drz-agam-1 ribozyme: an 80-nucleotide sequence from Hermetia illucens. It scores 37 bits against the family's covariance model. The family has 7 seed sequences and 10,507 matches in Rfam 15.1. Taxonomically the source falls in Hermetia (Eukaryota, Panarthropoda, Diptera, Brachycera).
RNA sequence: UACUACCAAACCCUAUCUCCACCUCCACGUUGUGAUCGCUGGGAGUUCUUUCUUCAUGAAAAAUUACAAAAGGGGGAGGG
Number, nucleotide and partner (000 for none) at each position: 001u000002a000003c000004u000005a000006c000007c000008a000009a000010a000011c000012c080013c079014u078015a000016u076017c075018u074019c073020c072021a033022c032023c000024u000025c000026c000027a000028c000029g000030u000031u000032g022033u021034g000035a000036u000037c000038g000039c000040u000041g000042g000043g000044a000045g067046u066047u000048c000049u063050u062051u061052c000053u059054u000055c000056a000057u000058g000059a053060a000061a051062a050063a049064u000065u000066a046067c045068a000069a000070a000071a000072g020073g019074g018075g017076g016077a000078g014079g013080g012